Shown here is a 178-nucleotide sequence from Neomonachus schauinslandi, a member of the family "FGF-1 internal ribosome entry site (IRES)". NCBI's taxonomy places the organism under Eukaryota, Metazoa, Eutheria, Phocidae, Neomonachus. The family has 6 seed sequences and 127 matches in Rfam 15.1. About the family: This family represents the FGF-1 internal ribosome entry site (IRES). The FGF-1 IRES is present in the 5' UTR of the mRNA and allows cap-independent translation. It is thought that FGF-1 IRES activity is strictly controlled and highly tissue specific. It scores 82 bits against the family's covariance model. A reference for the family is Martineau et al. (2004), "Internal Ribosome Entry Site Structural Motifs Conserved among Mammalian Fibroblast Growth Factor 1 Alternatively Spliced mRNAs", Mol Cell Biol.
[Rfam]
RNA sequence: GACUCCAGGGGAAUGAGGGCCUCGCCUCCUUUUGGGGAAGGACACUCCCUUCUGAUGGAGAAUGGGAACUCCCUCCCGCAGCGGCCUGCCUGCUAGCUCCGGCUAGCUCUGUGUGGACUGGGUAGCCUGCUGAGGCCUCGCCCGCCACCCCCACCCCGGAAAGAAAGUGCCUCAGAGC
Numbered sequence: 001g002a003c004u005c006c007a008g009g010g011g012a013a014u015g016a017g018g019g020c021c022u023c024g025c026c027u028c029c030u031u032u033u034g035g036g037g038a039a040g041g042a043c044a045c046u047c048c049c050u051u052c053u054g055a056u057g058g059a060g061a062a063u064g065g066g067a068a069c070u071c072c073c074u075c076c077c078g079c080a081g082c083g084g085c086c087u088g089c090c091u092g093c094u095a096g097c098u099c100c101g102g103c104u105a106g107c108u109c110u111g112u113g114u115g116g117a118c119u120g121g122g123u124a125g126c127c128u129g130c131u132g133a134g135g136c137c138u139c140g141c142c143c144g145c146c147a148c149c150c151c152c153a154c155c156c157c158g159g160a161a162a163g164a165a166a167g168u169g170c171c172u173c174a175g176a177g178c
Stems, first nucleotide, its partner, number of pairs: 003177003008173004014164001016050004025041003029037002051160003058079001060076001062074001064073003081151001083146003091140002100135001